Rfam assigns this 70-nucleotide RNA to the family "RAGATH-18 RNA". It is annotated as a small RNA.
RNA sequence: CCUGUGGACUGUACAAGAACUUGUUAGUAGAUUAAUUUAUUAAUCGAAAGCAUACAGGAUGAAAUAGGAA
Numbered sequence: 001c002c003u004g005u006g007g008a009c010u011g012u013a014c015a016a017g018a019a020c021u022u023g024u025u026a027g028u029a030g031a032u033u034a035a036u037u038u039a040u041u042a043a044u045c046g047a048a049a050g051c052a053u054a055c056a057g058g059a060u061g062a063a064a065u066a067g068g069a070a
Base pairs, nucleotide, nucleotide: 001068002067003066004065005064009057010056011055012054013053022052023051024050030045031044032043